[Rfam]
RNA sequence: CAAAGACGGUACUUACCUCAGUAACAUCUUUGAAAGUAAACAUUCUAAGACGUUGCUGAUGUAAGCACCGUUUUAGAAUGCCUACUUUCAAAGACGGUGUUGAUGUAAACACCGUCUUU
Dot-bracket structure: ...((((.((..((((.(((.((.(.((((((((((((..((((((((((((.((((......)))).))))))))))))..)))))))))))).).)).))).))))..)).))))..

This 119-nucleotide RNA sequence from Glycine max belongs to the Rfam family "MIR4374 microRNA precursor family".
The match comes from Rfam's covariance-model search (105 bits).
Rfam 15.1 lists 72 matches to the family in 2 species.
Taxonomically the source falls in Glycine subgen. Soja (Eukaryota, Embryophyta, Fabaceae, Papilionoideae).
Gene Ontology terms of the family: RISC complex and miRNA-mediated post-transcriptional gene silencing.